[Rfam]
RNA sequence: CCUGUGGAGUGUUGAUGAACCUGUAGUAGCGAGUAUUUGGCGAGGCAGAGCACGUUGAAACAGGAA
Numbered sequence: 001c002c003u004g005u006g007g008a009g010u011g012u013u014g015a016u017g018a019a020c021c022u023g024u025a026g027u028a029g030c031g032a033g034u035a036u037u038u039g040g041c042g043a044g045g046c047a048g049a050g051c052a053c054g055u056u057g058a059a060a061c062a063g064g065a066a
Base pairs, nucleotide, nucleotide: 001064002063003062004061005060009053010052011051012050013049021048022047023046029041030040
Annotation
This 66-nucleotide RNA sequence from Paenibacillus naphthalenovorans belongs to the Rfam family "RAGATH-18 RNA". The family's RNA type in Rfam is small RNA. Actinobacteria, Firmicutes, Fusobacteria, Thermotogae (1 example).